[Rfam]
RNA sequence: AUGUACCCACGUACAUUCCGGUUCCUGCGCGCCGCCCACGCCCACCUCGCGACCGCUCGCUACGUUCUGUUGGCG
Numbered sequence: 001a002u003g004u005a006c007c008c009a010c011g012u013a014c015a016u017u018c019c020g021g022u023u024c025c026u027g028c029g030c031g032c033c034g035c036c037c038a039c040g041c042c043c044a045c046c047u048c049g050c051g052a053c054c055g056c057u058c059g060c061u062a063c064g065u066u067c068u069g070u071u072g073g074c075g
Stems, first nucleotide, its partner, number of pairs: 002015005019034004024029001046073002049070003
This 75-nucleotide sequence from Dyella sp. AD56 belongs to the Rfam family "Xanthomonas sRNA sX9". It scores 71 bits against the family's covariance model. The base pairs follow the family's consensus structure, which was predicted with RNAalifold. Taxonomically the source falls in Dyella (Bacteria, Gammaproteobacteria, Lysobacterales, Rhodanobacteraceae).